[Rfam]
The record is a 99-nucleotide sequence from Butyrivibrio sp. AD3002, which matches "S10-Clostridia ribosomal protein leader" in Rfam. Taxonomically the source falls in Butyrivibrio (Bacteria, Bacillota, Clostridia, Lachnospiraceae). The literature on the family includes a 2020 paper in BMC Microbiol by Eckert and Weinberg, "Discovery of 20 novel ribosomal leader candidates in bacteria and archaea". The sequence is in the family's curated seed alignment.
RNA sequence: UGAUAGCUGUGAAGCGUGAGGUUGCUGUCUUAUCCAGUGAGACAGGUUUUCCGUGGAGCGAAUGUCAAGAGACCGCAAGGUCAGACAAUCUGACGACAA
Numbered sequence: 001u002g003a004u005a006g007c008u009g010u011g012a013a014g015c016g017u018g019a020g021g022u023u024g025c026u027g028u029c030u031u032a033u034c035c036a037g038u039g040a041g042a043c044a045g046g047u048u049u050u051c052c053g054u055g056g057a058g059c060g061a062a063u064g065u066c067a068a069g070a071g072a073c074c075g076c077a078a079g080g081u082c083a084g085a086c087a088a089u090c091u092g093a094c095g096a097c098a099a
Stems, first nucleotide, its partner, number of pairs: 014054003018051004025045008063098004071082004